[Rfam]
RNA sequence: GAAGCCCGCCAGACUGCCGCUGGUGCAAGCCGCAAGGACGACGCGCAAGCGUCGGGUGGAAACACCGCACUGGAGGAACGUCCGGACUGCAUAGGGCAGCGUAGCAGCUAACGGCUGUCCACUGAAAUGCGUGCACGCAAGUGCGCGUUAUAAGGUGAGGAUCAGAGCAACAGAGACGAGCCGAUUAAGUUCGGGUGAAACGGGCAAUCUCUACGCGCAGCAAUACCAAGUAGGCCAGCGUUGAUGGGGCCCCCAGAGCUGGCGGGUAGGUAGCACCGAGCGGUUGGGUGACCAACCGCCCAGAUUAAUGGCAGUCACAGGGUGGGCAACCAUCCUGCACAGAAUCCGGCUUAUCGGUGGGCUUCACAC
Number, nucleotide and partner (000 for none) at each position: 001g365002a364003a363004g362005c361006c360007c359008g358009c357010c356011a354012g316013a315014c314015u313016g312017c311018c310019g000020c073021u072022g071023g070024u069025g068026c067027a000028a000029g000030c000031c000032g000033c000034a000035a000036g000037g000038a000039c000040g000041a000042c000043g000044c000045g000046c000047a000048a000049g000050c000051g000052u000053c000054g000055g000056g000057u000058g000059g000060a000061a000062a000063c000064a000065c000066c000067g026068c025069a024070c023071u022072g021073g020074a000075g000076g000077a000078a352079c000080g350081u000082c349083c348084g347085g346086a345087c220088u219089g218090c217091a000092u000093a000094g252095g251096g250097c249098a000099g216100c215101g214102u213103a212104g118105c117106a116107g115108c114109u000110a000111a000112c000113g000114g108115c107116u106117g105118u104119c159120c157121a156122c155123u154124g000125a000126a000127a000128u000129g000130c000131g000132u000133g000134c000135a000136c000137g000138c000139a000140a000141g000142u000143g000144c000145g000146c000147g000148u000149u000150a000151u000152a000153a000154g123155g122156u121157g120158a000159g119160g211161a210162u000163c000164a000165g209166a208167g205168c204169a000170a000171c000172a000173g000174a000175g000176a000177c000178g000179a000180g000181c194182c193183g192184a191185u000186u000187a000188a000189g000190u000191u184192c183193g182194g181195g000196u000197g000198a000199a000200a000201c000202g000203g000204g168205c167206a000207a000208u166209c165210u161211c160212u103213a102214c101215g100216c099217g090218c089219a088220g087221c000222a000223a000224u272225a271226c270227c269228a000229a000230g000231u000232a000233g000234g263235c262236c261237a260238g259239c258240g000241u000242u000243g000244a000245u255246g254247g253248g000249g097250c096251c095252c094253c247254c246255a245256g000257a000258g239259c238260u237261g236262g235263c234264g000265g000266g000267u000268a000269g227270g226271u225272a224273g000274c000275a000276c000277c000278g000279a000280g299281c298282g297283g296284u295285u294286g293287g292288g000289u000290g000291a000292c287293c286294a285295a284296c283297c282298g281299c280300c000301c000302a000303g000304a000305u000306u000307a000308a000309u000310g018311g017312c016313a015314g014315u013316c012317a000318c000319a000320g000321g000322g000323u000324g000325g000326g000327c000328a000329a000330c000331c000332a000333u000334c000335c000336u000337g000338c000339a000340c000341a000342g000343a000344a000345u086346c085347c084348g083349g082350c080351u000352u078353a000354u011355c000356g010357g009358u008359g007360g006361g005362c004363u003364u002365c001366a000367c000368a000369c000

This 369-nucleotide sequence from Rhodoferax ferrireducens belongs to the Rfam family "Bacterial RNase P class A". The source organism's lineage runs through Bacteria, Burkholderiales, Comamonadaceae, Rhodoferax and Rhodoferax ferrireducens.